[Rfam]
RNA sequence: GAACGUGUCGUGGGAGAGCGUCCAUUUCCUCUCGGGGAUGGGCCGCCGAAGGAGCAACCGCCCCGGAAACUCUCAGGCCAAAGGACCGCGACACGGCC
Numbered sequence: 001g002a003a004c005g006u007g008u009c010g011u012g013g014g015a016g017a018g019c020g021u022c023c024a025u026u027u028c029c030u031c032u033c034g035g036g037g038a039u040g041g042g043c044c045g046c047c048g049a050a051g052g053a054g055c056a057a058c059c060g061c062c063c064c065g066g067a068a069a070c071u072c073u074c075a076g077g078c079c080a081a082a083g084g085a086c087c088g089c090g091a092c093a094c095g096g097c098c
Stems, first nucleotide, its partner, number of pairs: 006093008020043007045078003048074002052072003058066002
The record is a 98-nucleotide sequence from Altererythrobacter sp. B11, which matches "Glycine riboswitch aptamer" in Rfam. It scores 64 bits against the family's covariance model. Gene Ontology term of the family: glycine biosynthetic process. This family represents the bacterial glycine riboswitch.